[Rfam]
RNA sequence: CUGGCCACCUGGCUCUGAGAACUGAAUUCCAUAGGCUGUGAACUCUAGCAGAUGCCCUAGGAACUCAGUUCUGGUGCCCGGCUGUGCUGC
Numbered sequence: 001c002u003g004g005c006c007a008c009c010u011g012g013c014u015c016u017g018a019g020a021a022c023u024g025a026a027u028u029c030c031a032u033a034g035g036c037u038g039u040g041a042a043c044u045c046u047a048g049c050a051g052a053u054g055c056c057c058u059a060g061g062a063a064c065u066c067a068g069u070u071c072u073g074g075u076g077c078c079c080g081g082c083u084g085u086g087c088u089g090c
Stems, first nucleotide, its partner, number of pairs: 008081002011078003018072008034056003
Background:
The family of this 90-nucleotide RNA from Loxodonta africana is "mir-146 microRNA precursor family". Its family is annotated with RISC complex and miRNA-mediated post-transcriptional gene silencing in the Gene Ontology. Rfam's curators put it in the seed alignment. NCBI's taxonomy places the organism under Eukaryota, Vertebrata, Teleostomi, Dipnotetrapodomorpha, Loxodonta.